[Rfam]
RNA sequence: AAUGGGAGUGAUGAAAUUUUCACCUUAGGUAGAUAUAACCGACUGUUUUGGUCACUUACAGUAUCUGCCGAUGCUGGGGUUUGUCAUAGUUACACUGACCACAUU
Numbered sequence: 001a002a003u004g005g006g007a008g009u010g011a012u013g014a015a016a017u018u019u020u021c022a023c024c025u026u027a028g029g030u031a032g033a034u035a036u037a038a039c040c041g042a043c044u045g046u047u048u049u050g051g052u053c054a055c056u057u058a059c060a061g062u063a064u065c066u067g068c069c070g071a072u073g074c075u076g077g078g079g080u081u082u083g084u085c086a087u088a089g090u091u092a093c094a095c096u097g098a099c100c101a102c103a104u105u
Stems, first nucleotide, its partner, number of pairs: 001105004005100002
Dot-bracket structure: ((((((............................................................................................)).))))
Rfam assigns this 105-nucleotide RNA from Upupa epops to the family "Small nucleolar RNA SNORD46".
About the family: U40 is a C/D box small nucleolar RNA, also known as snoZ153 in plants. The human sequence has also been annotated in the sequence databases as U46. U40 is encoded in intron 2 of the ribosomal protein S8 gene in human, and is hypothesised to guide methylation of 2'-O-ribose residues on 28S ribosomal RNA. This family represents vertebrate U40.
It is annotated as a C/D-box small nucleolar RNA.
It scores 48 bits against the family's covariance model.
On this family, see Chen et al., Nucleic Acids Res 2003: "The high diversity of snoRNAs in plants: identification and comparative study of 120 snoRNA genes from Oryza sativa".
Rfam 15.1 lists 723 matches to the family in 611 species.
Its family is annotated with RNA processing and nucleolus in the Gene Ontology.